[Rfam]
RNA sequence: UGCUCAUCCAGAGGGGUGGAGGGACCGGCCCUGCGAAGCCCCGGCAACCCUCCCGGUUAAGAUCUCGCGCCGAUCGCGGGGCCCACCGGGACAGGUGCCAAGUCCGGCCCGCGACCAAGGUGGUCGCCGGGCGAAGAUGAGGG
Numbered sequence: 001u002g003c004u005c006a007u008c009c010a011g012a013g014g015g016g017u018g019g020a021g022g023g024a025c026c027g028g029c030c031c032u033g034c035g036a037a038g039c040c041c042c043g044g045c046a047a048c049c050c051u052c053c054c055g056g057u058u059a060a061g062a063u064c065u066c067g068c069g070c071c072g073a074u075c076g077c078g079g080g081g082c083c084c085a086c087c088g089g090g091a092c093a094g095g096u097g098c099c100a101a102g103u104c105c106g107g108c109c110c111g112c113g114a115c116c117a118a119g120g121u122g123g124u125c126g127c128c129g130g131g132c133g134a135a136g137a138u139g140a141g142g143g
Base pairs, nucleotide, nucleotide: 001143003141004140005139006138007137008136013042014041015040016039017038021031022030023029025107026106027105028104043099044098045097046096048095049094051091052090053089054088055087056086057085103135108131109130110129111128
Dot-bracket structure: (.((((((....(((((...(((.[[[[)))......)))))((((.((.(((((((...........................)))))))..))))))...(]]]]((((................))))...))))))).)
The record is a 143-nucleotide sequence from Sinosporangium siamense, which matches "SAM riboswitch aptamer (S box leader)" in Rfam. Taxonomically the source falls in Sinosporangium (Bacteria, Bacillati, Actinomycetota, Actinomycetes). A search with the family's covariance model found it, with a score of 65 bits.